The record is a 97-nucleotide RNA sequence from Colobus angolensis, which matches "Y RNA" in Rfam. NCBI's taxonomy places the organism under Eukaryota, Eumetazoa, Craniata, Colobus, Colobus angolensis. Rfam classes the family as a non-coding RNA gene. From the family's description: Y RNAs are components of the Ro ribonucleoprotein particle (Ro RNP), in association with Ro60 and La proteins. The Y RNAs and Ro60 and La proteins are well conserved, but the function of the Ro RNP is not known. In humans the RNA component can be one of four small RNAs -- hY1, hY3, hY4 and hY5. The match comes from Rfam's covariance-model search (40 bits).
RNA sequence: GGCUGGUCUCCCGUGUGGUGCUAUUUACAACUCAUUCAUCACAAUCAGAUUUCUUUGUUCCUUUUCCAUUCCCACUGCUUUACUUGACCAGCCUUCA
Numbered sequence: 001g002g003c004u005g006g007u008c009u010c011c012c013g014u015g016u017g018g019u020g021c022u023a024u025u026u027a028c029a030a031c032u033c034a035u036u037c038a039u040c041a042c043a044a045u046c047a048g049a050u051u052u053c054u055u056u057g058u059u060c061c062u063u064u065u066c067c068a069u070u071c072c073c074a075c076u077g078c079u080u081u082a083c084u085u086g087a088c089c090a091g092c093c094u095u096c097a
Stems, first nucleotide, its partner, number of pairs: 001093008013080001015075004020071001027058002030055001